[Rfam]
RNA: permuted transfer-messenger RNA
RNA sequence: GGCGAUAAAUUGUGUCGUGUAAUAGGCGCAGCGGACCCGGGGGCAGUACCCGGCGGCUCCACCAGAAAGGGCUUCGUCCCAUAGCGAAGCCCGUCCUGACGGGGCCGAACCAGGAUAGACGUGUGUUGAAAGACGAUAUUUUUGCCCGGCCCGAGUAAGCCGUAAAACUGUUCAAAACCUACAAGUGCCAACGAUAACGAGGCUCUUGCUCUUGCUGCGUAA
Numbered sequence: 001g002g003c004g005a006u007a008a009a010u011u012g013u014g015u016c017g018u019g020u021a022a023u024a025g026g027c028g029c030a031g032c033g034g035a036c037c038c039g040g041g042g043g044c045a046g047u048a049c050c051c052g053g054c055g056g057c058u059c060c061a062c063c064a065g066a067a068a069g070g071g072c073u074u075c076g077u078c079c080c081a082u083a084g085c086g087a088a089g090c091c092c093g094u095c096c097u098g099a100c101g102g103g104g105c106c107g108a109a110c111c112a113g114g115a116u117a118g119a120c121g122u123g124u125g126u127u128g129a130a131a132g133a134c135g136a137u138a139u140u141u142u143u144g145c146c147c148g149g150c151c152c153g154a155g156u157a158a159g160c161c162g163u164a165a166a167a168c169u170g171u172u173c174a175a176a177a178c179c180u181a182c183a184a185g186u187g188c189c190a191a192c193g194a195u196a197a198c199g200a201g202g203c204u205c206u207u208g209c210u211c212u213u214g215c216u217g218c219g220u221a222a
Base pairs, nucleotide, nucleotide: 001146002145003144004143005142015136016135017134018133027125028124029123031122032121033120037053038052039051040050041049054107055106056105057104058103059102060101147162148161149160150159